[Rfam]
RNA sequence: AAGUUUUUUCGAACCAUUUGAAUCAUAGUAGUGAUUCAAAUGGUUCGAAAAAA
Number, nucleotide and partner (000 for none) at each position: 001a000002a000003g000004u000005u000006u000007u050008u049009u048010c047011g046012a045013a044014c043015c042016a041017u040018u039019u038020g037021a036022a035023u034024c033025a032026u000027a000028g000029u000030a000031g000032u025033g024034a023035u022036u021037c020038a019039a018040a017041u016042g015043g014044u013045u012046c011047g010048a009049a008050a007051a000052a000053a000

This 53-nucleotide RNA sequence from Camphora micrantha belongs to the Rfam family "Plastid-ccsA-ndhD-1 3UTR RNA". For this family Rfam cites "Surprising features of plastid ndhD transcripts: addition of non-encoded nucleotides and polysome association of mRNAs with an unedited start codon" (Zandueta-Criado and Bock, Nucleic Acids Res, 2004). Pairs were carried over by alignment from the consensus structure, which was predicted with LocARNA. It scores 55 bits against the family's covariance model. About the family: Plastid-ccsA-ndhD-1 is a non-coding RNA (ncRNA) recognised in plastids. It was found in the three prime untranslated region (3UTR) of ccsA and ndhD genes, its 3UTR location suggests a role in transcript maturation. The family's RNA type in Rfam is cis-regulatory element. Rfam 15.1 lists 1,322 matches to the family in 557 species.